A member of the RNA family "U1 spliceosomal RNA" from Vicugna pacos, 166 nucleotides long. It scores 105 bits against the family's covariance model. The family is grouped with related families in Rfam's "U1 clan". Taxonomically the source falls in Vicugna (Eukaryota, Metazoa, Craniata, Laurasiatheria). Rfam classes the family as a spliceosomal small nuclear RNA.
RNA sequence: AUACUUACCUUGGCAGGGAAGAUACCAUGAUCAUGAAGGUGGUUUUCCGAGGGUGAAACUUAUCCAUUGUAUUCUGGUUAUGCUGACCCUUGCAAUUUCCCAUAUUUGUGGGAAACUCCGCUGCAUAACUUGUGGUAGUGGAGGGCUGCGUUUGAGCAUUCCCCUG
Numbered sequence: 001a002u003a004c005u006u007a008c009c010u011u012g013g014c015a016g017g018g019a020a021g022a023u024a025c026c027a028u029g030a031u032c033a034u035g036a037a038g039g040u041g042g043u044u045u046u047c048c049g050a051g052g053g054u055g056a057a058a059c060u061u062a063u064c065c066a067u068u069g070u071a072u073u074c075u076g077g078u079u080a081u082g083c084u085g086a087c088c089c090u091u092g093c094a095a096u097u098u099c100c101c102a103u104a105u106u107u108g109u110g111g112g113a114a115a116c117u118c119c120g121c122u123g124c125a126u127a128a129c130u131u132g133u134g135g136u137a138g139u140g141g142a143g144g145g146c147u148g149c150g151u152u153u154g155a156g157c158a159u160u161c162c163c164c165u166g
Stems, first nucleotide, its partner, number of pairs: 013124004018048001020046003024043005050091004055087001057084001059082001061080002064077002095117001096115003100111002140165002143162003147158003